[Rfam]
RNA sequence: AACCAUAACGAGCCGAAUUUCUUAUCGAAAACGGGGGAACCAUUUCUUGUAGGGGUGAAUUUCGCCAACCGCGCACGGGAAGCGAAUAGGGUGCCUAACAACCCGAAUCCGUCAGCUAACCUCGUAGGCUCCAGUCAGGAAACCA
Numbered sequence: 001a002a003c004c005a006u007a008a009c010g011a012g013c014c015g016a017a018u019u020u021c022u023u024a025u026c027g028a029a030a031a032c033g034g035g036g037g038a039a040c041c042a043u044u045u046c047u048u049g050u051a052g053g054g055g056u057g058a059a060u061u062u063c064g065c066c067a068a069c070c071g072c073g074c075a076c077g078g079g080a081a082g083c084g085a086a087u088a089g090g091g092u093g094c095c096u097a098a099c100a101a102c103c104c105g106a107a108u109c110c111g112u113c114a115g116c117u118a119a120c121c122u123c124g125u126a127g128g129c130u131c132c133a134g135u136c137a138g139g140a141a142a143c144c145a
Stems, first nucleotide, its partner, number of pairs: 011130004018030003031125006041052001053110003061086004089104004